Source information
A member of the RNA family "T-box leader" from Lachnospiraceae bacterium 10-1, 254 nucleotides long. A search with the family's covariance model found it, with a score of 110 bits. It is annotated as a cis-regulatory leader.

RNA sequence: UAAAAUGCAAGGAACGGAGAGAGUAUAUUACUGCUGCAUGUAAGGAUGCAGGUGUUUGCCCAGAGAAGGAAUGCCGCCGGCUGAAAGCAUUCCUGUAAACAGGUAAUAGAAGUGCAUCCGGGAGCAGGUCUUGUGAAGAAACAGAUUUAAAGUGCAGGGCAUAUAGUAGCAGGACACGUAUUCACACGUUACGUGCAAUGAGUGAAGGCAGCAGCCUUUAGUAGAGUGGAACCGCGGAUAACUUCGUCUCUAGG
Numbered sequence: 001u002a003a004a005a006u007g008c009a010a011g012g013a014a015c016g017g018a019g020a021g022a023g024u025a026u027a028u029u030a031c032u033g034c035u036g037c038a039u040g041u042a043a044g045g046a047u048g049c050a051g052g053u054g055u056u057u058g059c060c061c062a063g064a065g066a067a068g069g070a071a072u073g074c075c076g077c078c079g080g081c082u083g084a085a086a087g088c089a090u091u092c093c094u095g096u097a098a099a100c101a102g103g104u105a106a107u108a109g110a111a112g113u114g115c116a117u118c119c120g121g122g123a124g125c126a127g128g129u130c131u132u133g134u135g136a137a138g139a140a141a142c143a144g145a146u147u148u149a150a151a152g153u154g155c156a157g158g159g160c161a162u163a164u165a166g167u168a169g170c171a172g173g174a175c176a177c178g179u180a181u182u183c184a185c186a187c188g189u190u191a192c193g194u195g196c197a198a199u200g201a202g203u204g205a206a207g208g209c210a211g212c213a214g215c216c217u218u219u220a221g222u223a224g225a226g227u228g229g230a231a232c233c234g235c236g237g238a239u240a241a242c243u244u245c246g247u248c249u250c251u252a253g254g
Stems, first nucleotide, its partner, number of pairs: 007125002015120004026108006039097003067094008128175007177188003205218005223251004234247005
Description
The source organism's lineage runs through Bacteria, Bacillota, Clostridia, Lachnospirales and Lachnospiraceae.